[Rfam]
RNA: Pistol ribozyme
Nucleotides: 073
Base pairs, nucleotide, nucleotide: 002015003014004013006038007037008036009035010034011033025072026071027070032040042067043066044065045064046063047062048061049060050059051058
Number, partner (000 for none) and nucleotide at each position: 001000g002015c003014u004013c005000g006038u007037c008036u009035g010034g011033g012000c013004g014003a015002g016000g017000g018000u019000a020000a021000a022000u023000a024000g025072u026071a027070a028000u029000u030000a031000g032040g033011c034010c035009c036008a037007g038006a039000g040032c041000g042067u043066c044065u045064u046063g047062g048061c049060c050059g051058g052000g053000a054000g055000c056000u057000g058051c059050c060049g061048g062047u063046c064045a065044g066043g067042g068000g069000u070027u071026u072025a073000g